[Rfam]
RNA sequence: CAUUGAAUUGAUGAUAUACUGAUCCGAAUUUUAUCAUGUAGAUUGUAAAAUUUCAGACUACAAUUAUCUGAUCAAUG
Dot-bracket structure: ((((((.................................................................))))))
RNA: Small nucleolar RNA Z155